[Rfam]
RNA sequence: GCCCGGAUGAGCUUCGGGGGUCCGGAGUUUAGACUUCAAAUCUAAAGUCGAUUAGCGUCGAAGAGGUUCGAAUCCUCCUUCUGGGC
Numbered sequence: 001g002c003c004c005g006g007a008u009g010a011g012c013u014u015c016g017g018g019g020g021u022c023c024g025g026a027g028u029u030u031a032g033a034c035u036u037c038a039a040a041u042c043u044a045a046a047g048u049c050g051a052u053u054a055g056c057g058u059c060g061a062a063g064a065g066g067u068u069c070g071a072a073u074c075c076u077c078c079u080u081c082u083g084g085g086c
Stems, first nucleotide, its partner, number of pairs: 001086007009078001012027006028046006048061005063077004

This 86-nucleotide RNA from Didymodactylos carnosus belongs to the Rfam family "Selenocysteine transfer RNA". Its family is annotated with triplet codon-amino acid adaptor activity in the Gene Ontology.